[Rfam]
Record summary:
This 72-nucleotide RNA from Butyricicoccus pullicaecorum belongs to the Rfam family "tRNA". Transfer RNA (tRNA) molecules are approximately 80 nucleotides in length.
Nucleotides: 072
Base pairs, nucleotide, nucleotide: 001071002070003069004068005067006066007065010025011024012023027043028042029041030040031039048064049063050062051061052060
Number, partner (000 for none) and nucleotide at each position: 001071g002070g003069c004068c005067c006066g007065u008000u009000g010025g011024u012023c013000a014000a015000g016000c017000g018000g019000u020000c021000a022000a023012g024011a025010c026000g027043g028042c029041g030040g031039c032000c033000u034000c035000u036000c037000a038000c039031g040030c041029c042028g043027c044000a045000a046000a047000c048064g049063g050062g051061a052060g053000u054000u055000c056000g057000a058000u059000u060052c061051u062050c063049c064048c065007a066006c067005g068004g069003g070002u071001c072000a